[Rfam]
RNA sequence: CAACGUGUAUAAGCGCCAGAACCGCUGUUAGAGUGGCUAGUGCUACAAAGUUCCUGGGACUAGCAACUAGUCACUAGUCACUAACAAGCGGUUGACGAGGAAGGGGUUUAUCGAGUCUUCGGCGGAUGCCCCUCGGCCCGGCGGUCGGGCCGUCAAAGGCACUGCAAAUCCCGGGAGCGAUCCCGGGGACAAAGGGUGCCGGUGGCCGUAG
Numbered sequence: 001c002a003a004c005g006u007g008u009a010u011a012a013g014c015g016c017c018a019g020a021a022c023c024g025c026u027g028u029u030a031g032a033g034u035g036g037c038u039a040g041u042g043c044u045a046c047a048a049a050g051u052u053c054c055u056g057g058g059a060c061u062a063g064c065a066a067c068u069a070g071u072c073a074c075u076a077g078u079c080a081c082u083a084a085c086a087a088g089c090g091g092u093u094g095a096c097g098a099g100g101a102a103g104g105g106g107u108u109u110a111u112c113g114a115g116u117c118u119u120c121g122g123c124g125g126a127u128g129c130c131c132c133u134c135g136g137c138c139c140g141g142c143g144g145u146c147g148g149g150c151c152g153u154c155a156a157a158g159g160c161a162c163u164g165c166a167a168a169u170c171c172c173g174g175g176a177g178c179g180a181u182c183c184c185g186g187g188g189a190c191a192a193a194g195g196g197u198g199c200c201g202g203u204g205g206c207c208g209u210a211g
Base pairs, nucleotide, nucleotide: 020093021092022091023090024089025088026087029084102133103132104131105130106129111122112121113120114119134152135151136150137149138148139147158200159199160198161197162196163195170187171186172185173184174183175182176181
RNA: glmS glucosamine-6-phosphate activated ribozyme aptamer
Organism: Clostridiales bacterium PH28_bin88